A member of the RNA family "Small nucleolar RNA R64/Z200 family" from Papaver nudicaule, 96 nucleotides long. It is annotated as a C/D-box small nucleolar RNA. Lineage of the source: Eukaryota > Viridiplantae > Streptophytina > Tracheophyta > Papaver.
[Rfam]
RNA sequence: GUCUAGCGAGGAUGAUUUCUGAAGUUAUCACAUGUCAGACUUCAGAGGUUUUGGUAACAAGAUCUAUGAGAUGACAUUCCAUUAUCCUGAGUAGAG
Numbered sequence: 001g002u003c004u005a006g007c008g009a010g011g012a013u014g015a016u017u018u019c020u021g022a023a024g025u026u027a028u029c030a031c032a033u034g035u036c037a038g039a040c041u042u043c044a045g046a047g048g049u050u051u052u053g054g055u056a057a058c059a060a061g062a063u064c065u066a067u068g069a070g071a072u073g074a075c076a077u078u079c080c081a082u083u084a085u086c087c088u089g090a091g092u093a094g095a096g
Base pairs, nucleotide, nucleotide: 002095003094004093006092007091047064048063049062050061051060052059